Vibrio regulatory RNA of OmpA: a 138-nucleotide sequence from Vibrio sp. 10N.286.49.B3. The match comes from Rfam's covariance-model search (69 bits). A reference for the family is Song and Wai (2009), "A novel sRNA that modulates virulence and environmental fitness of Vibrio cholerae", RNA Biol. The base pairs follow the family's consensus structure, which is taken from published work.

RNA sequence: GUAGUAGAAUGCAGCAAAGUUUAACUGGCCGUCGAACUUAUUUUCCCUGCUACCUCUGUAACUACACUGUUUUUUUUCAUAUUUAACUCCUAUUUUUUGUAUCCGCCCAAACCCUCCUUUCGGUUUGGGCUUUUUUUU
Numbered sequence: 001g002u003a004g005u006a007g008a009a010u011g012c013a014g015c016a017a018a019g020u021u022u023a024a025c026u027g028g029c030c031g032u033c034g035a036a037c038u039u040a041u042u043u044u045c046c047c048u049g050c051u052a053c054c055u056c057u058g059u060a061a062c063u064a065c066a067c068u069g070u071u072u073u074u075u076u077u078c079a080u081a082u083u084u085a086a087c088u089c090c091u092a093u094u095u096u097u098u099g100u101a102u103c104c105g106c107c108c109a110a111a112c113c114c115u116c117c118u119u120u121c122g123g124u125u126u127g128g129g130c131u132u133u134u135u136u137u138u
Stems, first nucleotide, its partner, number of pairs: 001065005006057003012049003017044002028042001031039001105130009